[Rfam]
RNA sequence: CAGCAUUGUACCCAGAGUCUCUCUGCAGACAUUGCACCUGGAGCUG
Numbered sequence: 001c002a003g004c005a006u007u008g009u010a011c012c013c014a015g016a017g018u019c020u021c022u023c024u025g026c027a028g029a030c031a032u033u034g035c036a037c038c039u040g041g042a043g044c045u046g
Stems, first nucleotide, its partner, number of pairs: 001046004012041004017030004